A member of the RNA family "FMN riboswitch aptamer (RFN element)" from Roseovarius albus, 151 nucleotides long. It scores 115 bits against the family's covariance model. Taxonomically the source falls in Roseovarius (Bacteria, Pseudomonadati, Rhodobacterales, Roseobacteraceae).
RNA sequence: GCGUGUUCUCAGGGCGGGGCGAAAUUCCCCACCGGCGGUAAAGGGCGCAAGCCCCAAGCCCGCGAGCGGCCUCAUGGUUACCCAUGAGGUGUCAGCAGAUCUGGUGCAACUCCAGAGCCGACGGUCAUAGUCCGGAUGAAAGAGAACGUCA
Numbered sequence: 001g002c003g004u005g006u007u008c009u010c011a012g013g014g015c016g017g018g019g020c021g022a023a024a025u026u027c028c029c030c031a032c033c034g035g036c037g038g039u040a041a042a043g044g045g046c047g048c049a050a051g052c053c054c055c056a057a058g059c060c061c062g063c064g065a066g067c068g069g070c071c072u073c074a075u076g077g078u079u080a081c082c083c084a085u086g087a088g089g090u091g092u093c094a095g096c097a098g099a100u101c102u103g104g105u106g107c108a109a110c111u112c113c114a115g116a117g118c119c120g121a122c123g124g125u126c127a128u129a130g131u132c133c134g135g136a137u138g139a140a141a142g143a144g145a146a147c148g149u150c151a
Stems, first nucleotide, its partner, number of pairs: 003149008017029003031131002033120002035063004058118002066096002100116005122134003